The family of this 174-nucleotide RNA sequence from Papaver somniferum is "mir-393 microRNA precursor family". Rfam links the family to the GO terms RISC complex and miRNA-mediated post-transcriptional gene silencing. A search with the family's covariance model found it, with a score of 74 bits. NCBI's taxonomy places the organism under Eukaryota, Viridiplantae, Spermatophyta, Magnoliopsida, Papaver. For this family Rfam cites "Role of microRNAs and other sRNAs of plants in their changing environments" (Kruszka et al., J Plant Physiol, 2012).
[Rfam]
Nucleotides: 174
Stems, first nucleotide, its partner, number of pairs: 003173004009167001011165011023153004028149005
Number, partner (000 for none) and nucleotide at each position: 001000u002000a003173a004172g005171g006170a007000g008000a009167c010000a011165u012164c013163c014162a015161a016160a017159g018158g019157g020156a021155u022000c023153g024152c025151a026150u027000u028149g029148a030147u031146c032145c033000g034000u035000u036000c037000a038000u039000g040000c041000u042000c043000a044000u045000c046000u047000u048000c049000u050000u051000c052000u053000u054000u055000u056000u057000c058000a059000u060000c061000a062000u063000u064000g065000a066000u067000a068000u069000a070000u071000u072000c073000u074000g075000g076000u077000a078000a079000g080000u081000a082000a083000g084000u085000u086000a087000a088000g089000g090000u091000u092000u093000g094000a095000u096000g097000a098000u099000g100000a101000u102000c103000a104000a105000g106000u107000a108000a109000g110000a111000a112000c113000a114000u115000g116000u117000a118000u119000u120000u121000g122000u123000u124000g125000u126000u127000g128000a129000u130000a131000c132000a133000u134000a135000u136000g137000u138000a139000u140000g141000u142000u143000u144000c145032g146031g147030a148029u149028c150026a151025u152024g153023c154000c155021a156020u157019c158018u159017c160016u161015u162014u163013g164012g165011a166000a167009g168000c169000c170006u171005c172004c173003u174000c